[Rfam]
RNA sequence: UGGCGAAGGUCCCAGCAGGGAGGUGACUGCUCCAUGGUUUGAGAGCUCUCUAACGAUGAAACAAAAAUGGCUUCGCAAAUGAAUUUAGCCGAAUCGUAGGAUGCCCGAUUAGUCAAUUUUUGCAGCGUCCGGAACCCUCGGCAACAUCCAA
Number, nucleotide and partner (000 for none) at each position: 001u000002g000003g076004c075005g074006a073007a072008g071009g000010u000011c020012c019013c018014a000015g000016c000017a000018g013019g012020g011021a000022g000023g000024u000025g050026a049027c000028u000029g000030c043031u042032c041033c000034a040035u000036g000037g000038u000039u000040u034041g032042a031043g030044a000045g000046c000047u000048c000049u026050c025051u000052a000053a000054c000055g000056a000057u000058g000059a000060a000061a000062c000063a000064a000065a000066a000067a000068u000069g000070g000071c008072u007073u006074c005075g004076c003077a000078a000079a000080u000081g000082a000083a000084u000085u000086u000087a000088g142089c141090c140091g139092a138093a000094u000095c000096g000097u000098a000099g000100g129101a128102u000103g126104c125105c000106c122107g121108a120109u000110u000111a000112g000113u000114c000115a000116a000117u000118u000119u000120u108121u107122g106123c000124a000125g104126c103127g000128u101129c100130c000131g000132g000133a000134a000135c000136c000137c000138u092139c091140g090141g089142c088143a000144a000145c000146a000147u000148c000149c000150a000151a000

Rfam assigns this 151-nucleotide RNA from Theobroma umbraticum to the family "Small nucleolar RNA snoR145".
Rfam 15.1 lists 286 matches to the family in 194 species.
Rfam classes the family as an H/ACA-box small nucleolar RNA.
Pairs were carried over by alignment from the consensus structure, which was predicted with mfold.
Taxonomically the source falls in Theobroma (Eukaryota, Streptophytina, rosids, Byttnerioideae).
Its family is annotated with RNA processing and nucleolus in the Gene Ontology.